[Rfam]
RNA sequence: UGUGUGUUGUGUGUGUGUGUGUGGUGUGUGUGUGUGUGUGGUGUGUGUGUGUGUAUGUGUGUGUGCGUAUACACACACACACACACAACACACAUACACACACACACACACACAGACAUAUAUAUAUAUAUACAUAUAUAUAUAUAUUAUAUAUAUAUAUAUAUAUAUAAUAUAUAUUUACAUAUAUAUACAUGU
Numbered sequence: 001u002g003u004g005u006g007u008u009g010u011g012u013g014u015g016u017g018u019g020u021g022u023g024g025u026g027u028g029u030g031u032g033u034g035u036g037u038g039u040g041g042u043g044u045g046u047g048u049g050u051g052u053g054u055a056u057g058u059g060u061g062u063g064u065g066c067g068u069a070u071a072c073a074c075a076c077a078c079a080c081a082c083a084c085a086c087a088a089c090a091c092a093c094a095u096a097c098a099c100a101c102a103c104a105c106a107c108a109c110a111c112a113c114a115g116a117c118a119u120a121u122a123u124a125u126a127u128a129u130a131u132a133c134a135u136a137u138a139u140a141u142a143u144a145u146a147u148u149a150u151a152u153a154u155a156u157a158u159a160u161a162u163a164u165a166u167a168u169a170a171u172a173u174a175u176a177u178u179u180a181c182a183u184a185u186a187u188a189u190a191c192a193u194g195u
Base pairs, nucleotide, nucleotide: 013107014106015105016104029098030097031096033094034093035092036091037090038089039088041086043084044083045082046081047080050077051076052075053074054073123188124187125186126185127184137174138173139172140171141170143169144168145167146166148161149160150159151158152157
A member of the RNA family "Small nucleolar RNA SNORA23" from Penaeus vannamei, 195 nucleotides long.
It is annotated as an H/ACA-box small nucleolar RNA.
The members of this family belong to the H/ACA class of snoRNAs which are thought to guide the sites of modification of uridines to pseudouridines. This family includes human snoRNA ACA23 (SNORA23) and mouse snoMBI-1. ACA23 is predicted to guide the pseudouridylation of residue U3737 and U4331 of 28S rRNA.
Taxonomically the source falls in Penaeus (Eukaryota, Opisthokonta, Bilateria, Communostraca).